MIR394 microRNA precursor family: a 120-nucleotide RNA sequence from Prunus dulcis. A reference for the family is Jones-Rhoades and Bartel (2004), "Computational identification of plant microRNAs and their targets, including a stress-induced miRNA", Mol Cell. NCBI's taxonomy places the organism under Eukaryota, Embryophyta, fabids, Rosaceae, Prunus. The family has 19 seed sequences and 724 matches in Rfam 15.1.

RNA sequence: GUUGCAGAGGCAAUUUGGCAUUCUGUCCACCUCCAUAUUCACAAGUACAUAUAGAAGAAGUUUCUUUCUUUUAUUUUACAAGCUCUGGAGGUGGUCAGCAUGUCAAACUGGCUCUGUAAA
Numbered sequence: 001g002u003u004g005c006a007g008a009g010g011c012a013a014u015u016u017g018g019c020a021u022u023c024u025g026u027c028c029a030c031c032u033c034c035a036u037a038u039u040c041a042c043a044a045g046u047a048c049a050u051a052u053a054g055a056a057g058a059a060g061u062u063u064c065u066u067u068c069u070u071u072u073a074u075u076u077u078a079c080a081a082g083c084u085c086u087g088g089a090g091g092u093g094g095u096c097a098g099c100a101u102g103u104c105a106a107a108c109u110g111g112c113u114c115u116g117u118a119a120a
Stems, first nucleotide, its partner, number of pairs: 011110001015106006024097002027094008